[Rfam]
RNA sequence: AGGUCGGGAGGCUGCCGGUGGGACGGCGGCCGCGCAUGGACCGGAACCCCCCUGUUUCACGGACUGACCGCCGGGGCCCCGACGGCCGGUCAG
Dot-bracket structure: .((((....((((((((......)))))))).......)))).....................(((((.((((.........))))..)))))

The family of this 93-nucleotide RNA sequence is "Rhodo-rpoB RNA". It is annotated as a cis-regulatory element.